[Rfam]
RNA sequence: AGAAGGGCUUCCGUGCGGCAACGUUCGGGAGCUUUUCUUUUGC
Numbered sequence: 001a002g003a004a005g006g007g008c009u010u011c012c013g014u015g016c017g018g019c020a021a022c023g024u025u026c027g028g029g030a031g032c033u034u035u036u037c038u039u040u041u042g043c
Base pairs, nucleotide, nucleotide: 005034006033007032008031009030010029011028012027015025016023017022
Overview: ctRNA: a 43-nucleotide sequence from Rhodoblastus acidophilus. This family represents a group of ctRNAs (or counter-transcribed RNAs) from p42d and related plasmids. ctRNAs are small, highly structured, antisense sequences which are involved in negative regulation. The literature on the family includes a 2004 paper in Mol Microbiol by Venkova-Canova et al., "Two discrete elements are required for the replication of a repABC plasmid: an antisense RNA and a stem-loop structure".